[Rfam]
RNA sequence: AAAAGUAAGAGUGUAACAGGAAGAAAGUUGCAGCAUAUACGCGGUGAAUUAUUCGGUGUCAUAGGAGUAGAGUCUUUUGGUAAGAUGCUGAUAAUGAGUAGGGGAGAUGAAAGUUAAUCGUUCCCUGUCUCUCCGCUGGAAAGAAUUGCAAAACAAAGAAAAUCCCUGUAAAUUAAUACUUUACGGGGAUUUU
Numbered sequence: 001a002a003a004a005g006u007a008a009g010a011g012u013g014u015a016a017c018a019g020g021a022a023g024a025a026a027g028u029u030g031c032a033g034c035a036u037a038u039a040c041g042c043g044g045u046g047a048a049u050u051a052u053u054c055g056g057u058g059u060c061a062u063a064g065g066a067g068u069a070g071a072g073u074c075u076u077u078u079g080g081u082a083a084g085a086u087g088c089u090g091a092u093a094a095u096g097a098g099u100a101g102g103g104g105a106g107a108u109g110a111a112a113g114u115u116a117a118u119c120g121u122u123c124c125c126u127g128u129c130u131c132u133c134c135g136c137u138g139g140a141a142a143g144a145a146u147u148g149c150a151a152a153a154c155a156a157a158g159a160a161a162a163u164c165c166c167u168g169u170a171a172a173u174u175a176a177u178a179c180u181u182u183a184c185g186g187g188g189a190u191u192u193u
Stems, first nucleotide, its partner, number of pairs: 012032006041136004048095005054090007065077003096131003099127002102124004164188009174178001
RNA: Bacteroides sRNA BTnc005